Shown here is a 119-nucleotide RNA from Ptilonorhynchus violaceus, a member of the family "Small nucleolar RNA SNORA26". Rfam classes the family as an H/ACA-box small nucleolar RNA. On this family, see Huttenhofer et al., EMBO J 2001: "RNomics: an experimental approach that identifies 201 candidates for novel, small, non-messenger RNAs in mouse". Rfam's curators write: The snoRNA HBI-6 belong to the H/ACA family of snoRNAs, guiding the pseudouridylation of position U4522 if the 28S rRNA. HBI-6 is the human orthologue of mouse MBI-6 snoRNA. Gene Ontology terms of the family: RNA processing and nucleolus. The family's consensus secondary structure was predicted with RNAalifold.

RNA sequence: UUGCCCUCUUAAGUCUAGCAGUGUCUUAAGUGGCCAACACAGAGGGGUAUAGAAAUUCUCUCGCAAAGCCAGAGGUGAGAUUGAAACUCUACUUUGGAUCAUGCUUAGGAGGAACACAU
Numbered sequence: 001u002u003g004c005c006c007u008c009u010u011a012a013g014u015c016u017a018g019c020a021g022u023g024u025c026u027u028a029a030g031u032g033g034c035c036a037a038c039a040c041a042g043a044g045g046g047g048u049a050u051a052g053a054a055a056u057u058c059u060c061u062c063g064c065a066a067a068g069c070c071a072g073a074g075g076u077g078a079g080a081u082u083g084a085a086a087c088u089c090u091a092c093u094u095u096g097g098a099u100c101a102u103g104c105u106u107a108g109g110a111g112g113a114a115c116a117c118a119u
Base pairs, nucleotide, nucleotide: 002049003048004047005046006045007044009042010041016036019030056113058111059110060109061108069097070096071095072094073093074092077089078088079087081086